Small nucleolar RNA R160: a 78-nucleotide RNA from Triticum aestivum. Gene Ontology terms of the family: nucleolus and RNA processing. A search with the family's covariance model found it, with a score of 56 bits. Lineage of the source: Eukaryota > Streptophytina > Poaceae > Triticinae > Triticum. The family has 9 seed sequences and 799 matches in Rfam 15.1. About the family: snoR160 is a C/D box small nucleolar RNA, which acts as a methylation guide for 25S ribosomal RNA in plants. snoR160 has been alternatively named snoZ270 in rice. It is annotated as a C/D-box small nucleolar RNA.
RNA sequence: AGAAAAAUGAGAACUCAUGUGAUCUGAAGUAUCUGAUGCUGAUACAUCCGUAUAUGAUUUCAAAGUUCUCUGAUUGCU
Numbered sequence: 001a002g003a004a005a006a007a008u009g010a011g012a013a014c015u016c017a018u019g020u021g022a023u024c025u026g027a028a029g030u031a032u033c034u035g036a037u038g039c040u041g042a043u044a045c046a047u048c049c050g051u052a053u054a055u056g057a058u059u060u061c062a063a064a065g066u067u068c069u070c071u072g073a074u075u076g077c078u
Stems, first nucleotide, its partner, number of pairs: 001078002004075002